RNA: Small nucleolar RNA R32/R81/Z41
Organism: Trifolium subterraneum
RNA sequence: AGAUGAAGAUGAUGAAAGCAAUAAUAAAAGAUGCCUGAUCAACAAAUAUUACGAGUUUGAUAUGAUCGAACUUAUUAUCGCUACGUUCUUUCUGAUUCAUCC
Dot-bracket structure: ...((((........................................................................................))))...